[Rfam]
Background: SAM riboswitch aptamer (S box leader): a 118-nucleotide RNA sequence from Firmicutes bacterium CAG:145. Pairs were carried over by alignment from the consensus structure, which is taken from published work. The match comes from Rfam's covariance-model search (82 bits).
RNA sequence: UCCUUAUUGAGAGCGGCUGAGGGACUAGGCCCAGAGAAGCCCGGCAACCUGUAUGUUUUGUCAGAGAAACGUGAAAGGUGCUAAAUCCUACAGAAAUAUUAUUUCUGAAAGAUGAGGA
Number, nucleotide and partner (000 for none) at each position: 001u118002c117003c116004u115005u114006a113007u112008u111009g000010a000011g000012a000013g042014c000015g041016g040017c039018u000019g000020a000021g032022g031023g030024a000025c000026u090027a089028g088029g087030c023031c022032c021033a000034g000035a000036g000037a000038a000039g017040c016041c015042c013043g082044g081045c080046a079047a000048c078049c077050u074051g000052u000053a000054u000055g000056u000057u000058u000059u000060g000061u000062c000063a000064g000065a000066g000067a000068a000069a000070c000071g000072u000073g000074a050075a000076a000077g049078g048079u046080g045081c044082u043083a000084a000085a000086u110087c029088c028089u027090a026091c107092a106093g105094a104095a103096a102097u000098a000099u000100u000101a000102u096103u095104u094105c093106u092107g091108a000109a000110a086111g008112a007113u006114g005115a004116g003117g002118a001